RNA sequence: GUGUUUUUCAUGGUAUUAGAUUUAAGGUUAAAAAAGAUUAUUCGUCGGGAUGACGGAUAAUUUUUUUUAU
Numbered sequence: 001g002u003g004u005u006u007u008u009c010a011u012g013g014u015a016u017u018a019g020a021u022u023u024a025a026g027g028u029u030a031a032a033a034a035a036g037a038u039u040a041u042u043c044g045u046c047g048g049g050a051u052g053a054c055g056g057a058u059a060a061u062u063u064u065u066u067u068u069a070u
Stems, first nucleotide, its partner, number of pairs: 040058007
Dot-bracket structure: .......................................(((((((.....)))))))............
RNA: Bacteroidetes FopS (family of paralogous sRNAs)